RNA: Small nucleolar RNA Z43
RNA sequence: GGACGGUGACGAUCUCAUCAGUAAAAGGUCUCGUUCGUCGUAAAUCGGCUGUUUUUAAUAGCCCUUGCCGACUAUCCUGCUAUAUCACCACCCAUACUCCGAGUCC
Number, nucleotide and partner (000 for none) at each position: 001g106002g105003a104004c103005g000006g000007u000008g000009a000010c000011g000012a000013u000014c000015u000016c000017a000018u000019c000020a000021g000022u000023a000024a000025a000026a000027g000028g000029u000030c000031u000032c000033g000034u000035u000036c000037g000038u000039c000040g000041u000042a000043a000044a000045u000046c000047g000048g000049c000050u000051g066052u000053u061054u000055u000056u000057a000058a000059u000060a000061g053062c000063c000064c000065u000066u051067g000068c000069c000070g000071a000072c000073u000074a000075u000076c000077c000078u000079g000080c000081u000082a000083u000084a000085u000086c000087a000088c000089c000090a000091c000092c000093c000094a000095u000096a000097c000098u000099c000100c000101g000102a000103g004104u003105c002106c001